[Rfam]
RNA sequence: ACCAAAAAUACAUACUUCUUUACAUUCCAUAGCUUUGUAUGUUCAUAUGGGUACAUAAAGAAGUAUGUUCUCUGAGU
Numbered sequence: 001a002c003c004a005a006a007a008a009u010a011c012a013u014a015c016u017u018c019u020u021u022a023c024a025u026u027c028c029a030u031a032g033c034u035u036u037g038u039a040u041g042u043u044c045a046u047a048u049g050g051g052u053a054c055a056u057a058a059a060g061a062a063g064u065a066u067g068u069u070c071u072c073u074g075a076g077u
Base pairs, nucleotide, nucleotide: 007071010068011067012066013065014064015063016062017061018060019059020058021057022056027050028049029048030047031046
Dot-bracket structure: ......(..(((((((((((((....(((((..............))))).....)))))))))))))..)......
The record is a 77-nucleotide RNA sequence from Fukomys damarensis, which matches "mir-1 microRNA precursor family" in Rfam. This family represents the microRNA (miRNA) mir-1 family. miRNAs are transcribed as ~70nt precursors (modelled here) and subsequently processed by the Dicer enzyme to give a ~22nt product. In this case the mature sequence comes from the 3' arm of the precursor. The extents of the hairpin precursors are not generally known and are estimated based on hairpin prediction. For this family Rfam cites "microRNAs: tiny regulators with great potential" (Ambros, Cell, 2001). Taxonomically the source falls in Fukomys (Eukaryota, Bilateria, Deuterostomia, Gnathostomata).